Shown here is a 227-nucleotide RNA from Actinia tenebrosa, a member of the family "Small nucleolar RNA SNORA73 family".
About the family: U17 (SNORA73A and SNORA73B) also known as E1 belongs to the H/ACA class of small nucleolar RNAs (snoRNAs). Vertebrate U17 is intron-encoded and ranges in length from 200-230 nucleotides, longer than most snoRNAs. It is one of the most abundant snoRNAs in human cells and is essential for the cleavage of pre-rRNA within the 5' external transcribed spacer (ETS). This cleavage leads to the formation of 18S rRNA. Regions of the U17 RNA are complementary to rRNA and act as guides for RNA/RNA interactions, although these regions do not seem to be well conserved between organisms.
The family is grouped with related families in Rfam's "snR30-U17 clan".
The family's RNA type in Rfam is H/ACA-box small nucleolar RNA.
The organism belongs to Actinia, within Eukaryota.
RNA sequence: CCAAUGUGACAUCCAGUAGGUUGGCCCUUAUUGGCUCUGUCUUAAUGGUGUAUGGGAGCUGAGUGUCUAGUACACAUCUUACUGAUGUCUAUUCCCUUACCAUGGCAUUGGAAAUUAAAACCACCCCCAGUUAAUUCUGGUUUGGUGUGGUGCACUGCAUAUUCCUUGUGCUUCCUAGAGUCACUCUGUGACCUUUACUAGGGAGAUAAACCAUGCAGUGAACAAAU
Numbered sequence: 001c002c003a004a005u006g007u008g009a010c011a012u013c014c015a016g017u018a019g020g021u022u023g024g025c026c027c028u029u030a031u032u033g034g035c036u037c038u039g040u041c042u043u044a045a046u047g048g049u050g051u052a053u054g055g056g057a058g059c060u061g062a063g064u065g066u067c068u069a070g071u072a073c074a075c076a077u078c079u080u081a082c083u084g085a086u087g088u089c090u091a092u093u094c095c096c097u098u099a100c101c102a103u104g105g106c107a108u109u110g111g112a113a114a115u116u117a118a119a120a121c122c123a124c125c126c127c128c129a130g131u132u133a134a135u136u137c138u139g140g141u142u143u144g145g146u147g148u149g150g151u152g153c154a155c156u157g158c159a160u161a162u163u164c165c166u167u168g169u170g171c172u173u174c175c176u177a178g179a180g181u182c183a184c185u186c187u188g189u190g191a192c193c194u195u196u197a198c199u200a201g202g203g204a205g206a207u208a209a210a211c212c213a214u215g216c217a218g219u220g221a222a223c224a225a226a227u
Stems, first nucleotide, its partner, number of pairs: 001111007008041004013034003019026002045103004054096004058090001062086001063083001154219007171205006180192004
The base pairs follow the family's consensus structure, which is taken from published work.